[Rfam]
RNA sequence: UGAAGUAAAACGCUGAGUCCUGCAACGGCAGGAGCGGGGGAACCAACGAUCGUUUCGUGUUUAAUAACACGCAAUCGAAUCAUGGGGUGAAUCGCUUGGCAUAGGCCAAGCGUAGGGCAACUCUCAAGGCCCGAAUCCGACAGCUAACCUCGUAAGCGCACUCGAGAGAGGCA
Numbered sequence: 001u002g003a004a005g006u007a008a009a010a011c012g013c014u015g016a017g018u019c020c021u022g023c024a025a026c027g028g029c030a031g032g033a034g035c036g037g038g039g040g041a042a043c044c045a046a047c048g049a050u051c052g053u054u055u056c057g058u059g060u061u062u063a064a065u066a067a068c069a070c071g072c073a074a075u076c077g078a079a080u081c082a083u084g085g086g087g088u089g090a091a092u093c094g095c096u097u098g099g100c101a102u103a104g105g106c107c108a109a110g111c112g113u114a115g116g117g118c119a120a121c122u123c124u125c126a127a128g129g130c131c132c133g134a135a136u137c138c139g140a141c142a143g144c145u146a147a148c149c150u151c152g153u154a155a156g157c158g159c160a161c162u163c164g165a166g167a168g169a170g171g172c173a
Stems, first nucleotide, its partner, number of pairs: 011158004018033005034153006044084002085138003093112006115132004
This 173-nucleotide RNA sequence from Paenibacillus prosopidis belongs to the Rfam family "c-di-AMP riboswitch aptamer (ydaO/yuaA leader)".